[Rfam]
The family of this 402-nucleotide RNA sequence from Prevotella sp. CAG:873 is "Bacterial RNase P class A".
Pairs were carried over by alignment from the consensus structure, which is taken from published work.
By type it is a ribozyme.
NCBI's taxonomy places the organism under Bacteria, Bacteroidota, Bacteroidia, Bacteroidales, Prevotella.
RNA sequence: GACGGGCAGAGGCGCGUCGCUCGUCCGGCAGACCGACCGCGAGGCCGACCUGCGCAGACGGGAGGAAAGUCCGGGCAACACAGAGCACCAUACUUGCUAACGGCAAGCUGUCGGAAACGGCAGAGUAGUGUGACAGAAAACAACAGCCGACGAUGUCGGCAAAGGUGAAAAGGUGGGGUAAGAGCCCACCGGGAGACAUGGUGACAUGACUCGCCGCACACCUUAUGGGUUGCAAGGUCAAAUAUACCGGCAUUUAAGGGCUGCUCGUCCAUUGCCGGGGGGUAGACUGCUAAAGCGGCCGUGGCAACACGGCGCUCAGAUAAAUGACGUGCAUGGCCCCGUCCGGUCCCCACGCGGGAUACCGAGGGCUUACAGAACCCGGCUUACAUCCGCCCGCCGUCC
Numbered sequence: 001g002a003c004g005g006g007c008a009g010a011g012g013c014g015c016g017u018c019g020c021u022c023g024u025c026c027g028g029c030a031g032a033c034c035g036a037c038c039g040c041g042a043g044g045c046c047g048a049c050c051u052g053c054g055c056a057g058a059c060g061g062g063a064g065g066a067a068a069g070u071c072c073g074g075g076c077a078a079c080a081c082a083g084a085g086c087a088c089c090a091u092a093c094u095u096g097c098u099a100a101c102g103g104c105a106a107g108c109u110g111u112c113g114g115a116a117a118c119g120g121c122a123g124a125g126u127a128g129u130g131u132g133a134c135a136g137a138a139a140a141c142a143a144c145a146g147c148c149g150a151c152g153a154u155g156u157c158g159g160c161a162a163a164g165g166u167g168a169a170a171a172g173g174u175g176g177g178g179u180a181a182g183a184g185c186c187c188a189c190c191g192g193g194a195g196a197c198a199u200g201g202u203g204a205c206a207u208g209a210c211u212c213g214c215c216g217c218a219c220a221c222c223u224u225a226u227g228g229g230u231u232g233c234a235a236g237g238u239c240a241a242a243u244a245u246a247c248c249g250g251c252a253u254u255u256a257a258g259g260g261c262u263g264c265u266c267g268u269c270c271a272u273u274g275c276c277g278g279g280g281g282g283u284a285g286a287c288u289g290c291u292a293a294a295g296c297g298g299c300c301g302u303g304g305c306a307a308c309a310c311g312g313c314g315c316u317c318a319g320a321u322a323a324a325u326g327a328c329g330u331g332c333a334u335g336g337c338c339c340c341g342u343c344c345g346g347u348c349c350c351c352a353c354g355c356g357g358g359a360u361a362c363c364g365a366g367g368g369c370u371u372a373c374a375g376a377a378c379c380c381g382g383c384u385u386a387c388a389u390c391c392g393c394c395c396g397c398c399g400u401c402c
Base pairs, nucleotide, nucleotide: 001398003396004395005394006393007392009390010389011387012332013331014330015329016328017327018326020062021061022060023059024058025057027055067385068384069383071382072381073380074379075378076232077231078230079229083266084265085264086263088228089227090226091225092224093107094106095105096104097103108123110121111120112119113118124223125222128221129220130219131218132217144164146160147159148158149157150156151155172190173189174188175187176186177185192214193212194211195210197208198207199206200205236288237287238286239285247278248277249276250275251274258270259269260268261267295315296314297313299312300311301310302309303308